A member of the RNA family "sRNA-Xcc1" from Shigella sonnei, 84 nucleotides long. It is one of the family's seed sequences. It is annotated as a small RNA. A reference for the family is Wengelnik et al. (1996), "HrpG, a key hrp regulatory protein of Xanthomonas campestris pv. vesicatoria is homologous to two-component response regulators", Mol Plant Microbe Interact.
RNA sequence: GACCGGGUGUGCGGCUAAUACAAUACCAGCAAUGGAAAUACGCCCGCCGACUUUCGACGGUUUUGAGCGCCCGGUCACCCUCUC
Numbered sequence: 001g002a003c004c005g006g007g008u009g010u011g012c013g014g015c016u017a018a019u020a021c022a023a024u025a026c027c028a029g030c031a032a033u034g035g036a037a038a039u040a041c042g043c044c045c046g047c048c049g050a051c052u053u054u055c056g057a058c059g060g061u062u063u064u065g066a067g068c069g070c071c072c073g074g075u076c077a078c079c080c081u082c083u084c
Base pairs, nucleotide, nucleotide: 001076002075003074004073005072006071007070008069009068013044014043015042016040017039026035027034028033046061047060048059049058